Description:
This 584-nucleotide part of an RNA from Fusobacterium animalis belongs to the Rfam family "Bacterial large subunit ribosomal RNA". Lineage of the source: Bacteria > Fusobacteriota > Fusobacteriaceae > Fusobacterium > Fusobacterium animalis. The family is grouped with related families in Rfam's "LSU clan". The family's consensus secondary structure is taken from published work.

RNA sequence: CCUACAGUAGGACGGAAAGACCCCAUGGAGCUUUACUGUAGCUUGGUAUUGGGUUUUGGCAUUGCAUGUAUAGGAUAGUUGGGAGACUAUGAUGGUAUGGCGCUAGCUGUAUCGGAGUCAUCGGUGGAAUACCAACCAUUCAAUGCUGAAAUUCUAAUCUGUGGUUUGAAGCCACGGAGACAGUGCUAGGUGGGCAGUUUGACUGGGGCGGUCGCCUCCGAAAGAGUAACGGAGGCGUUCAAAGGUUCUCUCAGGUUGGAUGGAAAUCAACCAUAGAGUGCAAUGGCAUAAGAGAGCUUGACUGCAAGACUGACGGGUCGAGCAGAUGCGAAAGCAGGACAUAGUGAUCCGGCGAUUCCGAAUGGAAGGGUCGUCGCUCAACGGAUAAAAGCUACCCUGGGGAUAACAGGCUGAUCCUACCCGAGAGUCCAUAUCGACGGUAGGGUUUGGCACCUCGAUGUCGGCUCAUCGCAUCCUGGGGCUGGAGAAGGUCCCAAGGGUUGGGCUGUUCGCCCAUUAAAGCGGUACGUGAGCUGGGUUCAGAACGUCGUGAGACAGUUCGGUCCCUAUCCACUGUAGGCGUU
Dot-bracket structure: ((((((((.(((.((......((((.(((((((.((((...(((((((..((((((((((((((.(((.........(((((..(((......((((((((....))))))))...)))............)))))))).))))))))))))))...(((((((((...))))))))).....)))))))....))))..((((.....))))((((((...........))))))(.((....((((((((.((((((.......))))))...))((......))....))))))....((((..(((......)))..)))).(((....))).))..........(((((((.((........))))))))).....)......)))))..))))))........(((.((((((((...((.......))...)))))))..))))..........(((((((((((..((.((((((......))))))...)).(((((.....))))).....)))))..)..)))).).....(((((((....))).))))....))..)))))))))))....
Numbered sequence: 001c002c003u004a005c006a007g008u009a010g011g012a013c014g015g016a017a018a019g020a021c022c023c024c025a026u027g028g029a030g031c032u033u034u035a036c037u038g039u040a041g042c043u044u045g046g047u048a049u050u051g052g053g054u055u056u057u058g059g060c061a062u063u064g065c066a067u068g069u070a071u072a073g074g075a076u077a078g079u080u081g082g083g084a085g086a087c088u089a090u091g092a093u094g095g096u097a098u099g100g101c102g103c104u105a106g107c108u109g110u111a112u113c114g115g116a117g118u119c120a121u122c123g124g125u126g127g128a129a130u131a132c133c134a135a136c137c138a139u140u141c142a143a144u145g146c147u148g149a150a151a152u153u154c155u156a157a158u159c160u161g162u163g164g165u166u167u168g169a170a171g172c173c174a175c176g177g178a179g180a181c182a183g184u185g186c187u188a189g190g191u192g193g194g195c196a197g198u199u200u201g202a203c204u205g206g207g208g209c210g211g212u213c214g215c216c217u218c219c220g221a222a223a224g225a226g227u228a229a230c231g232g233a234g235g236c237g238u239u240c241a242a243a244g245g246u247u248c249u250c251u252c253a254g255g256u257u258g259g260a261u262g263g264a265a266a267u268c269a270a271c272c273a274u275a276g277a278g279u280g281c282a283a284u285g286g287c288a289u290a291a292g293a294g295a296g297c298u299u300g301a302c303u304g305c306a307a308g309a310c311u312g313a314c315g316g317g318u319c320g321a322g323c324a325g326a327u328g329c330g331a332a333a334g335c336a337g338g339a340c341a342u343a344g345u346g347a348u349c350c351g352g353c354g355a356u357u358c359c360g361a362a363u364g365g366a367a368g369g370g371u372c373g374u375c376g377c378u379c380a381a382c383g384g385a386u387a388a389a390a391g392c393u394a395c396c397c398u399g400g401g402g403a404u405a406a407c408a409g410g411c412u413g414a415u416c417c418u419a420c421c422c423g424a425g426a427g428u429c430c431a432u433a434u435c436g437a438c439g440g441u442a443g444g445g446u447u448u449g450g451c452a453c454c455u456c457g458a459u460g461u462c463g464g465c466u467c468a469u470c471g472c473a474u475c476c477u478g479g480g481g482c483u484g485g486a487g488a489a490g491g492u493c494c495c496a497a498g499g500g501u502u503g504g505g506c507u508g509u510u511c512g513c514c515c516a517u518u519a520a521a522g523c524g525g526u527a528c529g530u531g532a533g534c535u536g537g538g539u540u541c542a543g544a545a546c547g548u549c550g551u552g553a554g555a556c557a558g559u560u561c562g563g564u565c566c567c568u569a570u571c572c573a574c575u576g577u578a579g580g581c582g583u584u
Stems, first nucleotide, its partner, number of pairs: 001580008010572003014567002022401004027397002029393005035198004042190007051154014066139003078136005085119003094113008158178009201213004214236006237382001239339002245297006251277002254272006278287002302325004308319003327336003350376007358369002410451003414448001415445007425435002462537001463535004467529001468526005475500002478495006502516005543561004547556003